[Rfam]
RNA sequence: AGGUCUGAUACUCUAUCUUUCUAUGCUUUUGUAAACCUUGGAAUAUAGUUUAUCUGACCUGG
Numbered sequence: 001a002g003g004u005c006u007g008a009u010a011c012u013c014u015a016u017c018u019u020u021c022u023a024u025g026c027u028u029u030u031g032u033a034a035a036c037c038u039u040g041g042a043a044u045a046u047a048g049u050u051u052a053u054c055u056g057a058c059c060u061g062g
Base pairs, nucleotide, nucleotide: 001060002059003058004057005056007054008053009052010051013048014047015046016045018043019042020041021040
mir-7385 microRNA precursor family: a 62-nucleotide sequence from Phascolarctos cinereus. A search with the family's covariance model found it, with a score of 81 bits. Taxonomically the source falls in Phascolarctos (Eukaryota, Vertebrata, Gnathostomata, Metatheria).